[Rfam]
This 59-nucleotide RNA from Syringa tomentella belongs to the Rfam family "Plastid-psbA-2 3UTR RNA". Clan: Plastid-psbA 3UTR RNA clan. Rfam's curators write: Plastid psbA-2 is a non-coding RNA (ncRNA) present in plastids. It was identified in inverted repeat sequences in the 3 prime untranslate region (3UTR) of photosystem II quinone-binding protein (psbA).
RNA sequence: AAGGAACAAUAAACUCUUUCUUGUUCUAUCAAGAGGGCGUUGUUGCUCCUUUAUUUUCU
Numbered sequence: 001a002a003g004g005a006a007c008a009a010u011a012a013a014c015u016c017u018u019u020c021u022u023g024u025u026c027u028a029u030c031a032a033g034a035g036g037g038c039g040u041u042g043u044u045g046c047u048c049c050u051u052u053a054u055u056u057u058c059u
Stems, first nucleotide, its partner, number of pairs: 001051005007045006014037003019034005

The family's consensus secondary structure was predicted with LocARNA.